Rfam assigns this 59-nucleotide sequence to the family "msiK RNA".

RNA sequence: UGGCCUUGCUUCAUCCAACGGACCGUCGGGCACGUACCUGCCCGGAGAAGGAAGUGCAU
Numbered sequence: 001u002g003g004c005c006u007u008g009c010u011u012c013a014u015c016c017a018a019c020g021g022a023c024c025g026u027c028g029g030g031c032a033c034g035u036a037c038c039u040g041c042c043c044g045g046a047g048a049a050g051g052a053a054g055u056g057c058a059u
Base pairs, nucleotide, nucleotide: 009051010050011049014046015045027044028043029042030041031040032039

Source information: It is one of the family's seed sequences. Pairs were carried over by alignment from the consensus structure, which is taken from published work.